skipping-rope RNA: a 100-nucleotide RNA. By type it is a small RNA. Rfam's curators put it in the seed alignment.
RNA sequence: UGCUUGCGAGGUGAGAACGGCCUGCUCACGCUCCUGCAGUUUUGCAGGACAGUAGCCGAAAGGUGAAGAGAUCCUGGGAAUUGGCAUCCAGGCGCAAGUA
Dot-bracket structure: ((((((((..(((((....[[[..))))).((((((((....)))))))..................)....(((((.....]]]..)))))))))))))
Numbered sequence: 001u002g003c004u005u006g007c008g009a010g011g012u013g014a015g016a017a018c019g020g021c022c023u024g025c026u027c028a029c030g031c032u033c034c035u036g037c038a039g040u041u042u043u044g045c046a047g048g049a050c051a052g053u054a055g056c057c058g059a060a061a062g063g064u065g066a067a068g069a070g071a072u073c074c075u076g077g078g079a080a081u082u083g084g085c086a087u088c089c090a091g092g093c094g095c096a097a098g099u100a
Stems, first nucleotide, its partner, number of pairs: 001100008011029005020085003031068001032049007073092005